[Rfam]
RNA sequence: UUCUUAUCAAGAGAAGCUGAGGGACUGGCCCUUUGAAGCUUCAGCAACCAGCCAUCUGGUCAGGUGCUAACUCCAGCGGAUUUACAGAUUGUCCGAAAAGAUAAGAA
Numbered sequence: 001u002u003c004u005u006a007u008c009a010a011g012a013g014a015a016g017c018u019g020a021g022g023g024a025c026u027g028g029c030c031c032u033u034u035g036a037a038g039c040u041u042c043a044g045c046a047a048c049c050a051g052c053c054a055u056c057u058g059g060u061c062a063g064g065u066g067c068u069a070a071c072u073c074c075a076g077c078g079g080a081u082u083u084a085c086a087g088a089u090u091g092u093c094c095g096a097a098a099a100g101a102u103a104a105g106a107a
Base pairs, nucleotide, nucleotide: 001107002106003105004104005103006102007101008100013042014041015040016039017038021031022030023029025076026075027074028073043068044067045066046065048064049063051060052059053058072099077095078094079093080092081091

A member of the RNA family "SAM riboswitch aptamer (S box leader)" from Viridibacillus arenosi, 107 nucleotides long. NCBI's taxonomy places the organism under Bacteria, Bacillati, Bacilli, Caryophanaceae, Viridibacillus arenosi. The SAM riboswitch is found upstream of a number of genes which code for proteins involved in methionine or cysteine biosynthesis in Gram-positive bacteria.